[Rfam]
This 140-nucleotide sequence from Pelusios castaneus belongs to the Rfam family "U4 spliceosomal RNA". NCBI's taxonomy places the organism under Eukaryota, Sarcopterygii, Tetrapoda, Pleurodira, Pelusios. On this family, see Zhan et al., Cell Res 2018: "Structures of the human pre-catalytic spliceosome and its precursor spliceosome". It is annotated as a spliceosomal small nuclear RNA. Rfam links the family to the GO terms U4 snRNP and spliceosomal tri-snRNP complex assembly. It scores 120 bits against the family's covariance model. From the family's description: U4 small nuclear RNA (U4 snRNA) is a component of the major U2-dependent spliceosome. Pairs were carried over by alignment from the consensus structure, which is taken from published work.
RNA sequence: AGCUUUGCGCAGUGGCAGUAUCAUAGCCCAUGAGGUGAAUCCGAGGCGUGAUUAUUGCUAGUUGAAAACUUUUCCCAAUACCCCGCCGCGCUGGCUCCUCGUGGGCCGGUGCCGGCAAUUUUUGACGGCCUCGUGUGAGG
Numbered sequence: 001a002g003c004u005u006u007g008c009g010c011a012g013u014g015g016c017a018g019u020a021u022c023a024u025a026g027c028c029c030a031u032g033a034g035g036u037g038a039a040u041c042c043g044a045g046g047c048g049u050g051a052u053u054a055u056u057g058c059u060a061g062u063u064g065a066a067a068a069c070u071u072u073u074c075c076c077a078a079u080a081c082c083c084c085g086c087c088g089c090g091c092u093g094g095c096u097c098c099u100c101g102u103g104g105g106c107c108g109g110u111g112c113c114g115g116c117a118a119u120u121u122u123u124g125a126c127g128g129c130c131u132c133g134u135g136u137g138a139g140g
Base pairs, nucleotide, nucleotide: 020052021051022050023049024048026047027046028045034042035041085116086115087114088112089111090110091109092108093107094106095105096104097103129140130139131138132137